[Rfam]
RNA: U1 spliceosomal RNA
RNA sequence: AUACUUACCUGGCAGGGGAGACACCAUAAUCACGAAGGUGGUUUUCCCAGGACGAGGCUUAUCCAUCGUACUUCGGAUGUGCUGACCCCUGCGAUUUCCCCAAAUGUGGGAAACUCAACUGCAUAAAGUGUGGUAGUGGGGGACUGCGUUCGCACUCUCCCCUA
Numbered sequence: 001a002u003a004c005u006u007a008c009c010u011g012g013c014a015g016g017g018g019a020g021a022c023a024c025c026a027u028a029a030u031c032a033c034g035a036a037g038g039u040g041g042u043u044u045u046c047c048c049a050g051g052a053c054g055a056g057g058c059u060u061a062u063c064c065a066u067c068g069u070a071c072u073u074c075g076g077a078u079g080u081g082c083u084g085a086c087c088c089c090u091g092c093g094a095u096u097u098c099c100c101c102a103a104a105u106g107u108g109g110g111a112a113a114c115u116c117a118a119c120u121g122c123a124u125a126a127a128g129u130g131u132g133g134u135a136g137u138g139g140g141g142g143a144c145u146g147c148g149u150u151c152g153c154a155c156u157c158u159c160c161c162c163u164a
Base pairs, nucleotide, nucleotide: 012122013121014120015119016048017047018046019045020044021043023042024041025040026039027038049090050089051088054086056083057082058081060079061078062077063076064075093116094115095113096112097111099109100108138163139162140161141160142159143158146155148153